[Rfam]
mir-15 microRNA precursor family: an 88-nucleotide RNA from Gouania willdenowi.
A reference for the family is Lagos-Quintana et al. (2001), "Identification of novel genes coding for small expressed RNAs", Science.
This family represents the related mir-15a and mir-15b sequences. In humans miR-15a and miR-16 are clustered within 0.5 kb at 13q14.
It scores 64 bits against the family's covariance model.
The family is grouped with related families in Rfam's "mir-15 clan".
Taxonomically the source falls in Gouania (Eukaryota, Eurypterygia, Percomorphaceae, Gobiesocinae).
RNA sequence: GGUCGCUGUACUGUAGCAGCACGUAAAUAUUGGAGUUAAAAGUAGCUGAAGCCUCCAGUAUUGAUCGUGCUGCUGAAAUAGAGCUGAC
Numbered sequence: 001g002g003u004c005g006c007u008g009u010a011c012u013g014u015a016g017c018a019g020c021a022c023g024u025a026a027a028u029a030u031u032g033g034a035g036u037u038a039a040a041a042g043u044a045g046c047u048g049a050a051g052c053c054u055c056c057a058g059u060a061u062u063g064a065u066c067g068u069g070c071u072g073c074u075g076a077a078a079u080a081g082a083g084c085u086g087a088c
Base pairs, nucleotide, nucleotide: 001088003086005084006083014075015074016073017072018071019070020069021068022067023066024064026062027061028060029059030058031057032056033055034054035053